Annotation:
Shown here is a 190-nucleotide RNA from Anopheles sinensis, a member of the family "drz-agam-2-2 ribozyme". Rfam 15.1 lists 486 matches to the family in 10 species. Its family is annotated with catalytic activity in the Gene Ontology.
RNA sequence: ACCAUGUAUAUAGUUCUGUAACAGGGUGGAUCCGACGCCUCUUGGAGGCUACUGUAUGCUCUCCUCCCCAGCUCCUACUCAUUACGUCCGCGACGUACAGAACAGUAACUAGUCGCCUAAAUAACCAAGCUUGGGUACACGGGGGAACCAACCCCUUGGGCGGAUGGGCGGCAAGGCUGAAUUGAGAGGG
Numbered sequence: 001a002c003c004a005u006g007u008a009u010a011u012a013g014u015u016c017u018g019u020a021a022c023a024g025g026g027u028g029g030a031u032c033c034g035a036c037g038c039c040u041c042u043u044g045g046a047g048g049c050u051a052c053u054g055u056a057u058g059c060u061c062u063c064c065u066c067c068c069c070a071g072c073u074c075c076u077a078c079u080c081a082u083u084a085c086g087u088c089c090g091c092g093a094c095g096u097a098c099a100g101a102a103c104a105g106u107a108a109c110u111a112g113u114c115g116c117c118u119a120a121a122u123a124a125c126c127a128a129g130c131u132u133g134g135g136u137a138c139a140c141g142g143g144g145g146a147a148c149c150a151a152c153c154c155c156u157u158g159g160g161c162g163g164a165u166g167g168g169c170g171g172c173a174a175g176g177c178u179g180a181a182u183u184g185a186g187a188g189g190g
Stems, first nucleotide, its partner, number of pairs: 014100002017097001024068003028064003032058001073190004078186004083181001084096003088105001109175002112172007123165001125163002131151003135148002153160002